This 87-nucleotide sequence from Bacillus infantis belongs to the Rfam family "BsrC". The family's consensus secondary structure was predicted with CMfinder.

[Rfam]
RNA sequence: UCAACCUAAAACAAUGAAAGCCCUGCCUCUCUUCCAUCCUUGCGGCUCCGAGACCGCGCCAGCGGGAAUCAGGUAAACAAUCGGGAU
Dot-bracket structure: ..................................(...(((((((.(....).)))))..))...).....................
Rfam's curators write: The 301 nucleotide sequence from Kouji Nakamura has been trimmed to a highly conserved ~85 nucleotide long core to form this family. By type it is a small RNA.